[Rfam]
RNA sequence: AUGGAUGUGAUGAUUAUUUCCCCAGAUGAUCGAAUCUGAAAUAGCUGAGCGCUCAUUUCAUGUUUCUCCUUUUGGAGAAAUUCAAGCCAGAAAUCUGAUCCAU
Number, nucleotide and partner (000 for none) at each position: 001a103002u102003g101004g100005a099006u000007g000008u000009g000010a000011u000012g000013a000014u000015u000016a000017u000018u000019u000020c000021c000022c000023c000024a000025g000026a000027u000028g000029a000030u000031c000032g000033a000034a000035u000036c000037u000038g000039a000040a000041a000042u000043a000044g000045c000046u000047g000048a000049g000050c000051g000052c000053u000054c000055a000056u000057u000058u000059c000060a000061u000062g000063u000064u000065u000066c000067u000068c000069c000070u000071u000072u000073u000074g000075g000076a000077g000078a000079a000080a000081u000082u000083c000084a000085a000086g000087c000088c000089a000090g000091a000092a000093a000094u000095c000096u000097g000098a000099u005100c004101c003102a002103u001
This 103-nucleotide sequence from Helianthus annuus belongs to the Rfam family "Small nucleolar RNA Z103". The family has 12 seed sequences and 2,844 matches in Rfam 15.1. Lineage of the source: Eukaryota > Euphyllophyta > Spermatophyta > Asteraceae > Helianthus.